[Rfam]
RNA sequence: GGAUAGCACUAUUUUGCUAUCCCCGACUAAUAACAUAAUGACAUGUGAAAAAAUUAUCCUACAUGUCAUUCCAUUAUUAGUCGAGGAUAGCAAAAAAAGUGUUAUCC
Number, nucleotide and partner (000 for none) at each position: 001g000002g106003a105004u104005a103006g000007c000008a000009c000010u000011a000012u095013u094014u093015u092016g091017c090018u089019a088020u087021c000022c085023c000024c083025g082026a081027c080028u079029a078030a077031u076032a075033a074034c000035a000036u000037a070038a069039u068040g067041a066042c065043a064044u063045g062046u061047g060048a000049a000050a057051a000052a000053a000054u000055u000056a000057u050058c000059c000060u047061a046062c045063a044064u043065g042066u041067c040068a039069u038070u037071c000072c000073a000074u033075u032076a031077u030078u029079a028080g027081u026082c025083g024084a000085g022086g000087a020088u019089a018090g017091c016092a015093a014094a013095a012096a000097a000098a000099g000100u000101g000102u000103u005104a004105u003106c002107c000

Source information:
Rfam assigns this 107-nucleotide sequence from Prunus dulcis to the family "MIR6274 microRNA precursor family".